[Rfam]
RNA sequence: AUAGCUUCCGAAUAACGAGAAGGUGAAAUAUAUGAACACUUUCUGGUUCAGACAGAGGCUUACAUCAAGAAAAAAAAAACUCGAAUCAGAUUAUUGAAGGUGAAAAAAAACUCUUUUUUUGCCAUAUCAAAAUCUUCUUCCUCUUAUUGGAUAGAUUCGAAUAUCU
Numbered sequence: 001a002u003a004g005c006u007u008c009c010g011a012a013u014a015a016c017g018a019g020a021a022g023g024u025g026a027a028a029u030a031u032a033u034g035a036a037c038a039c040u041u042u043c044u045g046g047u048u049c050a051g052a053c054a055g056a057g058g059c060u061u062a063c064a065u066c067a068a069g070a071a072a073a074a075a076a077a078a079a080c081u082c083g084a085a086u087c088a089g090a091u092u093a094u095u096g097a098a099g100g101u102g103a104a105a106a107a108a109a110a111c112u113c114u115u116u117u118u119u120u121g122c123c124a125u126a127u128c129a130a131a132a133u134c135u136u137c138u139u140c141c142u143c144u145u146a147u148u149g150g151a152u153a154g155a156u157u158c159g160a161a162u163a164u165c166u
Stems, first nucleotide, its partner, number of pairs: 003060006014048003018044004023039003082159006091130002096125001100122001103119006139151003
Small nucleolar RNA snoR138: a 166-nucleotide RNA sequence from Arabis nemorensis. Rfam classes the family as an H/ACA-box small nucleolar RNA. On this family, see Chen and Wu, Nucleic Acids Res 2009: "Mining small RNA sequencing data: a new approach to identify small nucleolar RNAs in Arabidopsis". Rfam links the family to the GO terms RNA processing and nucleolus. The base pairs follow the family's consensus structure, which was predicted with mfold.